[Rfam]
RNA: Pseudoknot of tRNA-like structure
Organism: Bromovirus CYBV
RNA sequence: GUUGCCUUUGAGAGUUACUCCUUGCUCUCUUCAGAAGUUCUCUACCGAGAACGUGCAGUGGCUGUCAUAGACAGCCUUCAGACUGCGGGCAACGUCAGUUCCAUAAGGAACUGAUAAUCUCCAAAAGGAG
Dot-bracket structure: (((((((..((((((...[.[[[)))))).......((((((....))))))..((((.(((((((...)))))))......)))))))))))(((((((((....)))))))))..........]]].]